RNA sequence: AUGUUGUAUGUGAGAAUUGGAGAAAACCAUACAAAAAUUUAUGCCCAAACGGCUCUUUGAUUUAAUUGUAUGGUUUUCUCCAAUAUCUCAUCUCCAACCU
Numbered sequence: 001a002u003g004u005u006g007u008a009u010g011u012g013a014g015a016a017u018u019g020g021a022g023a024a025a026a027c028c029a030u031a032c033a034a035a036a037a038u039u040u041a042u043g044c045c046c047a048a049a050c051g052g053c054u055c056u057u058u059g060a061u062u063u064a065a066u067u068g069u070a071u072g073g074u075u076u077u078c079u080c081c082a083a084u085a086u087c088u089c090a091u092c093u094c095c096a097a098c099c100u
Stems, first nucleotide, its partner, number of pairs: 004097003008093001011090004016084006023077008032068002
Dot-bracket structure: ...(((.(..((((.((((((.((((((((.((.................................)).)))))))).))))))..))))..).)))...